[Rfam]
RNA sequence: GCUGGUGGAAGUGAUGACUCUUUCCCCGUCAGAGCGACAGUGUUGACUAUCGCUGUCUAAGCCAGGUCGUGUCUGAUGCACCAGC
Numbered sequence: 001g002c003u004g005g006u007g008g009a010a011g012u013g014a015u016g017a018c019u020c021u022u023u024c025c026c027c028g029u030c031a032g033a034g035c036g037a038c039a040g041u042g043u044u045g046a047c048u049a050u051c052g053c054u055g056u057c058u059a060a061g062c063c064a065g066g067u068c069g070u071g072u073c074u075g076a077u078g079c080a081c082c083a084g085c
Base pairs, nucleotide, nucleotide: 001085002084003083004082005081006080007079009077
This 85-nucleotide sequence from Aegithalos caudatus belongs to the Rfam family "Small nucleolar SNORD12/SNORD106". The family has 8 seed sequences and 2,264 matches in Rfam 15.1. The family is grouped with related families in Rfam's "SNORD12 clan". Rfam classes the family as a C/D-box small nucleolar RNA. For this family Rfam cites "RNomics: an experimental approach that identifies 201 candidates for novel, small, non-messenger RNAs in mouse" (Huttenhofer et al., EMBO J, 2001).